Group II catalytic intron D1-D4-3: a 173-nucleotide RNA sequence from Calderihabitans maritimus. It scores 132 bits against the family's covariance model. The source organism's lineage runs through Bacteria, Bacillati, Clostridia, Calderihabitantaceae and Calderihabitans.
RNA sequence: CCUGCGGCGACGCAGGAUCCGAAGGAAGCCGGCGGCAAACCUCCGGCCCGACGUACAGGAACCACAUUUGAGGCUAGCGGUAGUUGGAUGAGUUUACAUAACAAAGCGAAAUCCUUGCCACCGAAGGCUGCCGAGAGUAAAUGUGGCGGGUAGAUGGAUGGAAAGACAACGCC
Numbered sequence: 001c002c003u004g005c006g007g008c009g010a011c012g013c014a015g016g017a018u019c020c021g022a023a024g025g026a027a028g029c030c031g032g033c034g035g036c037a038a039a040c041c042u043c044c045g046g047c048c049c050g051a052c053g054u055a056c057a058g059g060a061a062c063c064a065c066a067u068u069u070g071a072g073g074c075u076a077g078c079g080g081u082a083g084u085u086g087g088a089u090g091a092g093u094u095u096a097c098a099u100a101a102c103a104a105a106g107c108g109a110a111a112u113c114c115u116u117g118c119c120a121c122c123g124a125a126g127g128c129u130g131c132c133g134a135g136a137g138u139a140a141a142u143g144u145g146g147c148g149g150g151u152a153g154a155u156g157g158a159u160g161g162a163a164a165g166a167c168a169a170c171g172c173c
Base pairs, nucleotide, nucleotide: 001016002015003014004013005012006011028173030171031170036165040160042158043157044156045155046151047150048149049148050147062146063145064144065143066142067141073138074137075136078133079132080131081130082129083128086114087113088112089111092107093106094105095104